RNA sequence: AGCAUUGGUCAAUUGCUGUGUAUUUAAUACAUAGAGGAAAGUCCGCGCUAGCACUGACUGAGAUGUCAGUAGUGUUCAUGCUAAGUCCAAUAAACUUAGGCCUAGACGACAAGUGCCACAGAGACGAGCUUAUUAAAUUAAGGUGAAACGCGGUAAACUCCAUGAGCUAGAAACCCAAAUUUAGGUAGGGGAACUAAACAAAGGAAAUUCAACUUUUGUUUAGAAGUUAUUAAAUUAAUAACUUAGAUAAAUAAUUGACGUUUUAUUUUUAAAAUAAAUUACAGAACGCGGCUUAUAAAU
Numbered sequence: 001a002g003c004a005u006u007g008g009u010c011a012a013u014u015g016c017u018g019u020g021u022a023u024u025u026a027a028u029a030c031a032u033a034g035a036g037g038a039a040a041g042u043c044c045g046c047g048c049u050a051g052c053a054c055u056g057a058c059u060g061a062g063a064u065g066u067c068a069g070u071a072g073u074g075u076u077c078a079u080g081c082u083a084a085g086u087c088c089a090a091u092a093a094a095c096u097u098a099g100g101c102c103u104a105g106a107c108g109a110c111a112a113g114u115g116c117c118a119c120a121g122a123g124a125c126g127a128g129c130u131u132a133u134u135a136a137a138u139u140a141a142g143g144u145g146a147a148a149c150g151c152g153g154u155a156a157a158c159u160c161c162a163u164g165a166g167c168u169a170g171a172a173a174c175c176c177a178a179a180u181u182u183a184g185g186u187a188g189g190g191g192a193a194c195u196a197a198a199c200a201a202a203g204g205a206a207a208u209u210c211a212a213c214u215u216u217u218g219u220u221u222a223g224a225a226g227u228u229a230u231u232a233a234a235u236u237a238a239u240a241a242c243u244u245a246g247a248u249a250a251a252u253a254a255u256u257g258a259c260g261u262u263u264u265a266u267u268u269u270u271a272a273a274a275u276a277a278a279u280u281a282c283a284g285a286a287c288g289c290g291g292c293u294u295a296u297a298a299a300u
Stems, first nucleotide, its partner, number of pairs: 004300003007296001008259007016034006039294003043291005048170005053070006076165005081099006100107001101105001108160002113158002115154003129142004174190003194223007224244008262278007